A member of the RNA family "Small nucleolar RNA SNORD79" from Oryctolagus cuniculus, 82 nucleotides long. The literature on the family includes a 2002 paper in Mol Cell Biol by Galardi et al., "Purified box C/D snoRNPs are able to reproduce site-specific 2'-O-methylation of target RNA in vitro". Rfam 15.1 lists 784 matches to the family in 651 species. Rfam links the family to the GO terms nucleolus and RNA processing. From the family's description: snoRNA U79 or Z22 is found in intron 7 of the gas5 gene in humans and is also present in mice.
[Rfam]
RNA sequence: UGCUGUUAGUGAUGACUUUAAGUUAAAACAGAUGGGAAUCUCUCUGAAAGAGACUGAAGACUACUUUUAAACUGAAACAGUA
Numbered sequence: 001u002g003c004u005g006u007u008a009g010u011g012a013u014g015a016c017u018u019u020a021a022g023u024u025a026a027a028a029c030a031g032a033u034g035g036g037a038a039u040c041u042c043u044c045u046g047a048a049a050g051a052g053a054c055u056g057a058a059g060a061c062u063a064c065u066u067u068u069a070a071a072c073u074g075a076a077a078c079a080g081u082a
Stems, first nucleotide, its partner, number of pairs: 001082007